[Rfam]
RNA sequence: GCCAUGGGGAUCGCGAUCUCCCCACGAGGCGACAGGCCCAAGCAUCGCAUCCGCAAACUUUCAUUCACGGAUGCAAAAACCAUG
Numbered sequence: 001g002c003c004a005u006g007g008g009g010a011u012c013g014c015g016a017u018c019u020c021c022c023c024a025c026g027a028g029g030c031g032a033c034a035g036g037c038c039c040a041a042g043c044a045u046c047g048c049a050u051c052c053g054c055a056a057a058c059u060u061u062c063a064u065u066c067a068c069g070g071a072u073g074c075a076a077a078a079a080c081c082a083u084g
Base pairs, nucleotide, nucleotide: 005024006023007022008021009020010019047074048073049072050071051070052069

Background
chrB-a RNA: an 84-nucleotide RNA sequence. Rfam 15.1 lists 347 matches to the family in 339 species. Rfam classes the family as a cis-regulatory element.